[Rfam]
RNA sequence: AUUCCGGUUGAUCCUGCCGGAGGCCAUUGCUAUCGGAGUUCGAUUUAGCAUGCUAGUUGUACGUCUAACGUAGCGAAAAGCUCCGUAACACGUGGCCAAACUACCCUGUGGAGGGCCAUAACCUCGGGAAACUGAGGCUAAUAGCCCAUACGACGCCCACGCUGGAAUGCCGGGCGGCCGAAAUGCUCCGGCGCCACAGGAUGUGGCUGCGGCUGAUUAGGUAGACGGUGGGGUAACGGCCCACCGUGCCGAUAAUCAGUACGGGUUGUGAGAGCAAGAGCCCGGAGACGGAAUCUGAGACAAGAUUCCGGGCCCUACGGGGCGCAGCAGGCGCGAAACCUUUACACUGCACGCCAGUGCGAUAAGGGGACCCCGAGUGCGAGGGCAUACUAGCCCUCGCUUUUCACAACCGUAGGGAGGUUGUGGAACAAGAGCUGGGCAAGACCGGUGCCAGCCGCCGCGGUAAUACCGGCAGCUCGAGUGAUGACCGCUGUUAUUG
Numbered sequence: 001a002u003u004c005c006g007g008u009u010g011a012u013c014c015u016g017c018c019g020g021a022g023g024c025c026a027u028u029g030c031u032a033u034c035g036g037a038g039u040u041c042g043a044u045u046u047a048g049c050a051u052g053c054u055a056g057u058u059g060u061a062c063g064u065c066u067a068a069c070g071u072a073g074c075g076a077a078a079a080g081c082u083c084c085g086u087a088a089c090a091c092g093u094g095g096c097c098a099a100a101c102u103a104c105c106c107u108g109u110g111g112a113g114g115g116c117c118a119u120a121a122c123c124u125c126g127g128g129a130a131a132c133u134g135a136g137g138c139u140a141a142u143a144g145c146c147c148a149u150a151c152g153a154c155g156c157c158c159a160c161g162c163u164g165g166a167a168u169g170c171c172g173g174g175c176g177g178c179c180g181a182a183a184u185g186c187u188c189c190g191g192c193g194c195c196a197c198a199g200g201a202u203g204u205g206g207c208u209g210c211g212g213c214u215g216a217u218u219a220g221g222u223a224g225a226c227g228g229u230g231g232g233g234u235a236a237c238g239g240c241c242c243a244c245c246g247u248g249c250c251g252a253u254a255a256u257c258a259g260u261a262c263g264g265g266u267u268g269u270g271a272g273a274g275c276a277a278g279a280g281c282c283c284g285g286a287g288a289c290g291g292a293a294u295c296u297g298a299g300a301c302a303a304g305a306u307u308c309c310g311g312g313c314c315c316u317a318c319g320g321g322g323c324g325c326a327g328c329a330g331g332c333g334c335g336a337a338a339c340c341u342u343u344a345c346a347c348u349g350c351a352c353g354c355c356a357g358u359g360c361g362a363u364a365a366g367g368g369g370a371c372c373c374c375g376a377g378u379g380c381g382a383g384g385g386c387a388u389a390c391u392a393g394c395c396c397u398c399g400c401u402u403u404u405c406a407c408a409a410c411c412g413u414a415g416g417g418a419g420g421u422u423g424u425g426g427a428a429c430a431a432g433a434g435c436u437g438g439g440c441a442a443g444a445c446c447g448g449u450g451c452c453a454g455c456c457g458c459c460g461c462g463g464u465a466a467u468a469c470c471g472g473c474a475g476c477u478c479g480a481g482u483g484a485u486g487a488c489c490g491c492u493g494u495u496a497u498u499g
Stems, first nucleotide, its partner, number of pairs: 004020005022489002025486007033376004038371004042334001048332002051329003056074003061071004081287003091211007100204002105200007113147004122137006152178001154176005161170002185192002213259003220250003225247008262284004266277004289310006312323004340366001342365003348361005379400008405425007432478006445472004454461002
Notes
This 499-nucleotide part of an RNA from Salinigranum rubrum belongs to the Rfam family "Archaeal small subunit ribosomal RNA". Taxonomically the source falls in Salinigranum (Archaea, Methanobacteriati, Methanobacteriota, Halobacteria). The base pairs follow the family's consensus structure, which is taken from published work. Rfam links the family to the GO terms structural constituent of ribosome and ribosome. For this family Rfam cites "Crystal structure of the ribosome at 5.5 A resolution" (Yusupov et al., Science, 2001). The family has 86 seed sequences and 709 matches in Rfam 15.1.